[Rfam]
RNA sequence: CUAAGCAAUUUGGGAUCCACAGAAGGAACGUUCACGUUGUGGCUCUCGUCAGAUGAGUUUUCUCAUUUGCUAAUCCUUCC
Numbered sequence: 001c002u003a004a005g006c007a008a009u010u011u012g013g014g015a016u017c018c019a020c021a022g023a024a025g026g027a028a029c030g031u032u033c034a035c036g037u038u039g040u041g042g043c044u045c046u047c048g049u050c051a052g053a054u055g056a057g058u059u060u061u062c063u064c065a066u067u068u069g070c071u072a073a074u075c076c077u078u079c080c
Base pairs, nucleotide, nucleotide: 013046014045015044017042018041022079023078024077025076026075027074028040029039030038050069051068052067053066054065055064056063
This 80-nucleotide RNA from Acanthosepion pharaonis belongs to the Rfam family "Mammalian CPEB3 ribozyme". Lineage of the source: Eukaryota > Metazoa > Eumetazoa > Lophotrochozoa > Acanthosepion. The match comes from Rfam's covariance-model search (46 bits).